[Rfam]
RNA sequence: GAUAAUUGAACAGCAUUCCUUCGUAUAUACUCGCGAAUUGGCGCGAGAGUCUCUACCGGACCACCGUAAAUGGACCGACUAUGAAGGAGCACGUUUCGUAU
Numbered sequence: 001g002a003u004a005a006u007u008g009a010a011c012a013g014c015a016u017u018c019c020u021u022c023g024u025a026u027a028u029a030c031u032c033g034c035g036a037a038u039u040g041g042c043g044c045g046a047g048a049g050u051c052u053c054u055a056c057c058g059g060a061c062c063a064c065c066g067u068a069a070a071u072g073g074a075c076c077g078a079c080u081a082u083g084a085a086g087g088a089g090c091a092c093g094u095u096u097c098g099u100a101u
Stems, first nucleotide, its partner, number of pairs: 018087008030047006057077003061073003
The record is a 101-nucleotide RNA sequence from Exiguobacterium chiriqhucha, which matches "Purine riboswitch aptamer" in Rfam. The organism belongs to Exiguobacterium chiriqhucha, within Bacteria. The family's consensus secondary structure is taken from published work.